[Rfam]
RNA: pemK RNA
RNA sequence: AUAAUGAUACUUCCGUAAUUCGCGGCCCGGCCACAAAGAAGGCGGGGAGGUGAAAAGCCUAUGA
Numbered sequence: 001a002u003a004a005u006g007a008u009a010c011u012u013c014c015g016u017a018a019u020u021c022g023c024g025g026c027c028c029g030g031c032c033a034c035a036a037a038g039a040a041g042g043c044g045g046g047g048a049g050g051u052g053a054a055a056a057g058c059c060u061a062u063g064a
Stems, first nucleotide, its partner, number of pairs: 012061001013025004026047003030043003048060003